This 249-nucleotide RNA sequence from Manihot esculenta belongs to the Rfam family "RNase MRP".
Rfam's curators write: RNase MRP is an enzymatically active ribonucleoprotein with two distinct roles in eukaryotes. In mitochondria it plays a direct role in the initiation of mitochondrial DNA replication. In the nucleus it is involved in precursor rRNA processing, where it cleaves the internal transcribed spacer 1 between 18S and 5.8S rRNAs. Despite distinct functions, RNase MRP has been shown to be evolutionarily related to RNase P. Like eukaryotic RNase P, RNase MRP is not catalytically active without associated protein subunits.
By type it is a ribozyme.
Lineage of the source: Eukaryota > Tracheophyta > rosids > Euphorbiaceae > Manihot.
RNA sequence: CAUUUAUGGGACAGAGUGGUUGGGUGAUUACUUCUUCACCCAAGAAAGUCCCCGGGCCCUUGUCUGCAGAGAUGCAGUCCCAGAAACGGGAGAACUUGAGGCGCAGGAUCUUGCUCGCAAUUAGCGGCGGGGCUGAGAAUCGUGUGGAGCCUUGCGAUCCUGUGUCCAAGAGAACUGGCCAUUGUUUCACAGUUAUCCACUCAGCUCACUAUAGUGGGCUAACAGAACGGGGCUUACGAUCUCAUGGAU
Number, nucleotide and partner (000 for none) at each position: 001c000002a249003u248004u247005u246006a245007u244008g243009g242010g241011a240012c000013a000014g202015a201016g200017u199018g198019g197020u000021u042022g041023g040024g039025u038026g037027a036028u000029u000030a000031c000032u000033u000034c000035u000036u027037c026038a025039c024040c023041c022042a021043a000044g000045a000046a235047a234048g233049u000050c232051c231052c230053c229054g000055g000056g000057c000058c000059c000060u000061u000062g000063u000064c000065u076066g075067c074068a073069g000070a000071g000072a000073u068074g067075c066076a065077g000078u091079c090080c089081c088082a000083g000084a000085a000086a000087c000088g081089g080090g079091a078092g000093a000094a000095c172096u171097u170098g000099a000100g000101g000102c164103g163104c162105a161106g160107g159108a000109u000110c000111u157112u156113g155114c154115u000116c000117g000118c000119a000120a000121u000122u000123a000124g150125c149126g000127g000128c000129g000130g000131g000132g000133c000134u000135g145136a000137g143138a000139a000140u000141c000142g000143u137144g000145u135146g000147g000148a000149g125150c124151c000152u000153u000154g114155c113156g112157a111158u000159c107160c106161u105162g104163u103164g102165u000166c000167c000168a000169a000170g097171a096172g095173a000174a000175c000176u000177g000178g000179c000180c000181a000182u000183u000184g000185u000186u000187u000188c000189a000190c000191a000192g000193u000194u000195a000196u000197c019198c018199a017200c016201u015202c014203a000204g219205c218206u217207c216208a215209c214210u000211a000212u000213a000214g209215u208216g207217g206218g205219c204220u000221a000222a000223c000224a000225g000226a000227a000228c000229g053230g052231g051232g050233c048234u047235u046236a000237c000238g000239a000240u011241c010242u009243c008244a007245u006246g005247g004248a003249u002